[Rfam]
RNA sequence: UAUCAUUGGCAGGGGUGCCCUUUGGGCUGAGAAAUGAAGAUUUUUUCAUUAACCCUUGAACCUGAUGUGGAUCAUGCCACCGGAGGGAGCUGAUAAUGAGUCUUU
Dot-bracket structure: .....(((((((((..((((...))))......(((((......)))))...))))....(((...((((......))))...)))..)))))............
Numbered sequence: 001u002a003u004c005a006u007u008g009g010c011a012g013g014g015g016u017g018c019c020c021u022u023u024g025g026g027c028u029g030a031g032a033a034a035u036g037a038a039g040a041u042u043u044u045u046u047c048a049u050u051a052a053c054c055c056u057u058g059a060a061c062c063u064g065a066u067g068u069g070g071a072u073c074a075u076g077c078c079a080c081c082g083g084a085g086g087g088a089g090c091u092g093a094u095a096a097u098g099a100g101u102c103u104u105u
Stems, first nucleotide, its partner, number of pairs: 006093005011056004017027004034049005061086003067080004